[Rfam]
RNA sequence: ACAGUACAAACGGAGCAGACCGGGAUUAUAUGAUAUCUUAUGCCUGUUAUGUGCAAAUAAGAUUAAAUCACAUGAUAAUAUAAAAGUAUAAUCCAGGAGUCGGGUCACACGCGUGACAGUGGAAUCUCUUCUAUCCACGGGACAGUA
Number, nucleotide and partner (000 for none) at each position: 001a000002c000003a000004g000005u000006a000007c000008a000009a000010a146011c145012g000013g143014a000015g000016c141017a000018g101019a100020c099021c000022g000023g094024g093025a092026u091027u090028a089029u088030a087031u086032g000033a000034u000035a000036u000037c000038u000039u000040a000041u000042g000043c000044c000045u000046g000047u000048u000049a000050u000051g000052u000053g000054c000055a000056a000057a000058u000059a000060a000061g000062a000063u000064u000065a000066a000067a000068u000069c000070a000071c000072a000073u000074g000075a000076u000077a000078a000079u000080a000081u000082a000083a000084a000085a000086g031087u030088a029089u028090a027091a026092u025093c024094c023095a000096g000097g000098a000099g020100u019101c018102g000103g000104g117105u116106c115107a114108c113109a000110c000111g000112c000113g108114u107115g106116a105117c104118a000119g138120u137121g136122g135123a134124a000125u000126c000127u000128c000129u000130u000131c000132u000133a000134u123135c122136c121137a120138c119139g000140g000141g016142a000143c013144a000145g011146u010147a000
RNA: NiCo (Nickel/Cobalt) riboswitch aptamer